[Rfam]
RNA sequence: GUCUCGGUGAAGAUCUCAGACCAGGAAGUGCCGUAUGACACUGUAAACAGCAGCUGCUUCUGUGCUGCUGCAAGUGUCCAUCCCUGUUGCAUAACCUCUGUGGUUUGCUCUGGUGUGGAAUACCAUUUGCACCGGCUUGAUUCAGCUGUGUGCGUGAUUUGAAAUGGGUCUCUGAGGGAC
Dot-bracket structure: (((((.............................................................(.(((((((((((((.(.....(((.((((.....)))))))....).)))))....)))))))))...........................................)))))
RNA: Small nucleolar RNA Z112
Organism: Triticum urartu